This 226-nucleotide RNA sequence from Clostridium thailandense belongs to the Rfam family "Lysine riboswitch aptamer".
[Rfam]
RNA sequence: CCUUAGGGUAGAGGUGCUUUAAUUAAUAGUAUUUAUUCUUAGUUGGCGGACAGUGAGGAAUAAAGAAAGGGAUUAUGGCCGAAGAAAAUAUUUUGGCGAAAUUAUUUUCUGGCUUUGCAUAUAAUAUGUGUAAGGUUGUCACCUAAGUUUCUGUAGUUAGAUAUAGAAACUUGACUAUACGAAUUUUGUAUAGUUCCAUUUAUGGAGGUGGAGAGCUACAAAGGUA
Numbered sequence: 001c002c003u004u005a006g007g008g009u010a011g012a013g014g015u016g017c018u019u020u021a022a023u024u025a026a027u028a029g030u031a032u033u034u035a036u037u038c039u040u041a042g043u044u045g046g047c048g049g050a051c052a053g054u055g056a057g058g059a060a061u062a063a064a065g066a067a068a069g070g071g072a073u074u075a076u077g078g079c080c081g082a083a084g085a086a087a088a089u090a091u092u093u094u095g096g097c098g099a100a101a102u103u104a105u106u107u108u109c110u111g112g113c114u115u116u117g118c119a120u121a122u123a124a125u126a127u128g129u130g131u132a133a134g135g136u137u138g139u140c141a142c143c144u145a146a147g148u149u150u151c152u153g154u155a156g157u158u159a160g161a162u163a164u165a166g167a168a169a170c171u172u173g174a175c176u177a178u179a180c181g182a183a184u185u186u187u188g189u190a191u192a193g194u195u196c197c198a199u200u201u202a203u204g205g206a207g208g209u210g211g212a213g214a215g216c217u218a219c220a221a222a223g224g225u226a
Stems, first nucleotide, its partner, number of pairs: 008219004016079003020075005032064008083110008092101003111137011139211006
Rfam links the family to the GO term lysine biosynthetic process. A search with the family's covariance model found it, with a score of 95 bits.